A member of the RNA family "Flavo-1 RNA" from Flavobacterium noncentrifugens, 99 nucleotides long. Rfam classes the family as a small RNA. The match comes from Rfam's covariance-model search (53 bits). Lineage of the source: Bacteria > Pseudomonadati > Flavobacteriia > Flavobacteriales > Flavobacterium.
[Rfam]
RNA sequence: UUCGCGUUAGCGAUUGCAGUGGAAAUCCUUUUUGGGAUUGCCGCGGAGCUUGCGGAGCGGAAAUCUCCAAAAAGAUUGUAACGGAAAGCGCGGCCCGCA
Numbered sequence: 001u002u003c004g005c006g007u008u009a010g011c012g013a014u015u016g017c018a019g020u021g022g023a024a025a026u027c028c029u030u031u032u033u034g035g036g037a038u039u040g041c042c043g044c045g046g047a048g049c050u051u052g053c054g055g056a057g058c059g060g061a062a063a064u065c066u067c068c069a070a071a072a073a074g075a076u077u078g079u080a081a082c083g084g085a086a087a088g089c090g091c092g093g094c095c096c097g098c099a
Stems, first nucleotide, its partner, number of pairs: 010091003014087002019082002024077004030072007